[Rfam]
RNA sequence: UUGCUAUGAUGACUUUCUUAGGCCACGUUUGGAUUAACCAUGAAAAGAAAUGUGUAUUCUGAGCAAC
Numbered sequence: 001u002u003g004c005u006a007u008g009a010u011g012a013c014u015u016u017c018u019u020a021g022g023c024c025a026c027g028u029u030u031g032g033a034u035u036a037a038c039c040a041u042g043a044a045a046a047g048a049a050a051u052g053u054g055u056a057u058u059c060u061g062a063g064c065a066a067c
Stems, first nucleotide, its partner, number of pairs: 001066004

Rfam assigns this 67-nucleotide RNA sequence from Pelusios castaneus to the family "Small nucleolar RNA SNORD58". Rfam classes the family as a C/D-box small nucleolar RNA. On this family, see Kiss-Laszlo et al., Cell 1996: "Site-specific ribose methylation of preribosomal RNA: a novel function for small nucleolar RNAs". Taxonomically the source falls in Pelusios (Eukaryota, Chordata, Amniota, Pleurodira). snoRNA U58 is found in introns 1, 3 and 6 of the ribosomal protein RPL17 gene in humans. Rfam 15.1 lists 2,484 matches to the family in 680 species.